[Rfam]
RNA sequence: UGCACACAUAACCCAAAGUUCAUUAUUUCUGUGUAAUGAUCUUGUCUGAUGUGCACAGAUUAUCAGUAUUUUGUCGCCGUUCAUGGAUUGAUGUAUCUGUGGAUGUGAAUACUGAGAUAUUACAUUU
Numbered sequence: 001u002g003c004a005c006a007c008a009u010a011a012c013c014c015a016a017a018g019u020u021c022a023u024u025a026u027u028u029c030u031g032u033g034u035a036a037u038g039a040u041c042u043u044g045u046c047u048g049a050u051g052u053g054c055a056c057a058g059a060u061u062a063u064c065a066g067u068a069u070u071u072u073g074u075c076g077c078c079g080u081u082c083a084u085g086g087a088u089u090g091a092u093g094u095a096u097c098u099g100u101g102g103a104u105g106u107g108a109a110u111a112c113u114g115a116g117a118u119a120u121u122a123c124a125u126u127u
Base pairs, nucleotide, nucleotide: 001055002054003053004052005051006050018041020039021038022037023036024035025034026033066120067119068118069117070116071115072114078105079104080103081102082101083100084099085098086097087096088095
Rfam assigns this 127-nucleotide RNA from Leptobrachium leishanense to the family "Small nucleolar RNA SNORA68". A reference for the family is Ganot et al. (1997), "The family of box ACA small nucleolar RNAs is defined by an evolutionarily conserved secondary structure and ubiquitous sequence elements essential for RNA accumulation", Genes Dev. Rfam classes the family as an H/ACA-box small nucleolar RNA. Rfam's curators write: U68 is a member of the H/ACA class of small nucleolar RNAs (snoRNAs) which act as guides in the the modification of uridines to pseudouridines. Lineage of the source: Eukaryota > Dipnotetrapodomorpha > Tetrapoda > Pelobatoidea > Leptobrachium. The family's consensus secondary structure was predicted with PFOLD.